[Rfam]
RNA sequence: CAGCGUGUGGAGGUCACACAUCAUGCCGUUUGAUGCUGGAAUACACUGCAUAGCGGGUGAUCUCCCUAUCCAGU
Numbered sequence: 001c002a003g004c005g006u007g008u009g010g011a012g013g014u015c016a017c018a019c020a021u022c023a024u025g026c027c028g029u030u031u032g033a034u035g036c037u038g039g040a041a042u043a044c045a046c047u048g049c050a051u052a053g054c055g056g057g058u059g060a061u062c063u064c065c066c067u068a069u070c071c072a073g074u
Stems, first nucleotide, its partner, number of pairs: 003071001005069003009065009019055001021053001023051004
The record is a 74-nucleotide sequence from Ornithorhynchus anatinus, which matches "mir-1421 microRNA precursor family" in Rfam. Lineage of the source: Eukaryota > Deuterostomia > Vertebrata > Sarcopterygii > Ornithorhynchus. Rfam 15.1 lists 110 matches to the family in 14 species. The base pairs follow the family's consensus structure, which was predicted with RNAalifold.